[Rfam]
RNA sequence: AGCUUUGCACAGUGGCAGUAUCGUAGCCAAUGAGGUUUAUCGGAGGCACGAUUAUUGCUAAUUGAAAACAUUUUACAAUGCAUUGGACAGUUCCUUACAACAAAUAAUCUGGCUUUAAAUGUCAAUAAUGCUGAGGUUAAGAAGCC
Number, nucleotide and partner (000 for none) at each position: 001a000002g000003c000004u000005u000006u000007g000008c000009a000010c000011a000012g000013u000014g000015g000016c000017a000018g000019u000020a052021u051022c050023g049024u048025a000026g047027c046028c045029a000030a000031u000032g000033a000034g000035g041036u000037u000038u000039a000040u000041c035042g000043g000044a000045g028046g027047c026048a024049c023050g022051a021052u020053u000054a000055u000056u000057g000058c000059u000060a000061a000062u000063u000064g000065a000066a000067a000068a000069c000070a000071u000072u000073u000074u000075a000076c000077a000078a000079u000080g122081c121082a120083u118084u117085g116086g115087a114088c000089a000090g000091u000092u000093c000094c000095u000096u000097a000098c000099a000100a000101c000102a000103a000104a000105u000106a000107a000108u000109c000110u000111g000112g000113c000114u087115u086116u085117a084118a083119a000120u082121g081122u080123c000124a000125a000126u000127a000128a000129u000130g000131c000132u000133g000134a000135g146136g145137u144138u143139a000140a000141g000142a000143a138144g137145c136146c135
A member of the RNA family "U4 spliceosomal RNA" from Canis lupus, 146 nucleotides long. Gene Ontology terms of the family: U4 snRNP and spliceosomal tri-snRNP complex assembly. The source organism's lineage runs through Eukaryota, Metazoa, Teleostomi, Euteleostomi and Canis lupus. About the family: U4 small nuclear RNA (U4 snRNA) is a component of the major U2-dependent spliceosome. The base pairs follow the family's consensus structure, which is taken from published work. The family's RNA type in Rfam is spliceosomal small nuclear RNA. A reference for the family is Zwieb (1997), "The uRNA database", Nucleic Acids Res. A search with the family's covariance model found it, with a score of 72 bits. The family is grouped with related families in Rfam's "U4 clan".